[Rfam]
RNA: Small nucleolar RNA SNORA75
Organism: Anabas testudineus
RNA sequence: CUCUUCUCAUGAGCUCCUCUUAAUCUUACCCAUGAUUCUGCAUGGAUUCGCACGAGAAGUAGAGUCAGUGCACAGUAAGAACGGGCUCAUCCUAGUCACGUGUGGGUGCUGCACAUGUCUGCUGUGCAACAAGU
Numbered sequence: 001c002u003c004u005u006c007u008c009a010u011g012a013g014c015u016c017c018u019c020u021u022a023a024u025c026u027u028a029c030c031c032a033u034g035a036u037u038c039u040g041c042a043u044g045g046a047u048u049c050g051c052a053c054g055a056g057a058a059g060u061a062g063a064g065u066c067a068g069u070g071c072a073c074a075g076u077a078a079g080a081a082c083g084g085g086c087u088c089a090u091c092c093u094a095g096u097c098a099c100g101u102g103u104g105g106g107u108g109c110u111g112c113a114c115a116u117g118u119c120u121g122c123u124g125u126g127c128a129a130c131a132a133g134u
Stems, first nucleotide, its partner, number of pairs: 003059006013051002015046003022037004070127006088108005